[Rfam]
RNA sequence: CGGGAUCACAACCCACUCGGAUCGUCCGGCACGUACCUGCCGGUGGGAGGACAUCAUU
Numbered sequence: 001c002g003g004g005a006u007c008a009c010a011a012c013c014c015a016c017u018c019g020g021a022u023c024g025u026c027c028g029g030c031a032c033g034u035a036c037c038u039g040c041c042g043g044u045g046g047g048a049g050g051a052c053a054u055c056a057u058u
Stems, first nucleotide, its partner, number of pairs: 012047004026043006
msiK RNA: a 58-nucleotide sequence from Schaalia zhouxuedongae. Pairs were carried over by alignment from the consensus structure, which is taken from published work. Taxonomically the source falls in Schaalia (Bacteria, Actinomycetota, Actinomycetes, Actinomycetaceae).